The family of this 68-nucleotide sequence from Heterocephalus glaber is "mir-486 microRNA precursor family".
NCBI's taxonomy places the organism under Eukaryota, Opisthokonta, Amniota, Theria, Heterocephalus.
The literature on the family includes a 2009 paper in BMC Mol Biol by Jin et al., "Characterization of bovine miRNAs by sequencing and bioinformatics analysis".
The family's consensus secondary structure was predicted with RNAalifold.
Nucleotides: 068
Stems, first nucleotide, its partner, number of pairs: 008061002011058008020049005025043001
Number, partner (000 for none) and nucleotide at each position: 001000g002000c003000a004000u005000c006000c007000u008061g009060u010000u011058c012057u013056g014055a015054g016053c017052u018051g019000c020049c021048c022047c023046g024045a025043g026000u027000g028000g029000g030000g031000c032000a033000c034000a035000g036000u037000g038000a039000a040000g041000g042000g043025c044000c045024u046023c047022g048021g049020g050000g051018c052017a053016g054015c055014u056013c057012a058011g059000u060009a061008c062000a063000g064000g065000a066000u067000c068000c